[Rfam]
RNA sequence: GGCGCACCCCCGGGGAGCGCUGAGGAGCGCUGAGAGUGCGGACGGUCCGCAGACCCGUGAACCUGAUCCGGUUCGUACCGGCGUAGGGAGCAGGGCACCACCUCGA
Numbered sequence: 001g002g003c004g005c006a007c008c009c010c011c012g013g014g015g016a017g018c019g020c021u022g023a024g025g026a027g028c029g030c031u032g033a034g035a036g037u038g039c040g041g042a043c044g045g046u047c048c049g050c051a052g053a054c055c056c057g058u059g060a061a062c063c064u065g066a067u068c069c070g071g072u073u074c075g076u077a078c079c080g081g082c083g084u085a086g087g088g089a090g091c092a093g094g095g096c097a098c099c100a101c102c103u104c105g106a
Base pairs, nucleotide, nucleotide: 007095008094009093011057012056013055014054017030018029019028020027021026037051038050039049040048041047062087063086064085065084068081069080070079071078
Annotation
TPP riboswitch aptamer (THI element): a 106-nucleotide RNA sequence from Cellulomonas marina. The base pairs follow the family's consensus structure, which is taken from published work. The match comes from Rfam's covariance-model search (61 bits).